[Rfam]
RNA sequence: GGCGUAAAGAGCUCGUAGGUGGCUGGUCGCGUCUGCCGUGAAAGCCCGCAGCUUAACUGCGGGUCUGCGGUGGAUACGGGCCGGCUAGAGGUAGGUAGGGGCAAGUGGAAUUCCUGGUGUAGCGGUGAAAUGCGCAGAUAUCAGGAGGAACACCGGUGGCGAAGGCGGCUUGCUGGGCCUUACCUGACGCUGAGGAGCGAAAGCGUGGGGAGCGAACAGGAUUAGAUACCCUGGUAGUCCACGCUGUAAACGUUGGGCGCUAGGUGUGGGACCCUUCCACGGGUUCCGUGCCGGAGCUAACGCAUUAAGCGCCCCGCCUGGGGAGUACGGCCGCAAGGCUAAAACUCAAAGGAAU
Numbered sequence: 001g002g003c004g005u006a007a008a009g010a011g012c013u014c015g016u017a018g019g020u021g022g023c024u025g026g027u028c029g030c031g032u033c034u035g036c037c038g039u040g041a042a043a044g045c046c047c048g049c050a051g052c053u054u055a056a057c058u059g060c061g062g063g064u065c066u067g068c069g070g071u072g073g074a075u076a077c078g079g080g081c082c083g084g085c086u087a088g089a090g091g092u093a094g095g096u097a098g099g100g101g102c103a104a105g106u107g108g109a110a111u112u113c114c115u116g117g118u119g120u121a122g123c124g125g126u127g128a129a130a131u132g133c134g135c136a137g138a139u140a141u142c143a144g145g146a147g148g149a150a151c152a153c154c155g156g157u158g159g160c161g162a163a164g165g166c167g168g169c170u171u172g173c174u175g176g177g178c179c180u181u182a183c184c185u186g187a188c189g190c191u192g193a194g195g196a197g198c199g200a201a202a203g204c205g206u207g208g209g210g211a212g213c214g215a216a217c218a219g220g221a222u223u224a225g226a227u228a229c230c231c232u233g234g235u236a237g238u239c240c241a242c243g244c245u246g247u248a249a250a251c252g253u254u255g256g257g258c259g260c261u262a263g264g265u266g267u268g269g270g271a272c273c274c275u276u277c278c279a280c281g282g283g284u285u286c287c288g289u290g291c292c293g294g295a296g297c298u299a300a301c302g303c304a305u306u307a308a309g310c311g312c313c314c315c316g317c318c319u320g321g322g323g324a325g326u327a328c329g330g331c332c333g334c335a336a337g338g339c340u341a342a343a344a345c346u347c348a349a350a351g352g353a354a355u
Stems, first nucleotide, its partner, number of pairs: 001318003009315001011198004016192001018191003022085007030078002032074009045063007089185003093180004100174007107151001111147008122133003159166002203244006212238002217233004255314006263292012296303002320347003329340004
Overview: The record is a 355-nucleotide part of an RNA from Nonomuraea fuscirosea, which matches "Bacterial small subunit ribosomal RNA" in Rfam. The base pairs follow the family's consensus structure, which is taken from published work.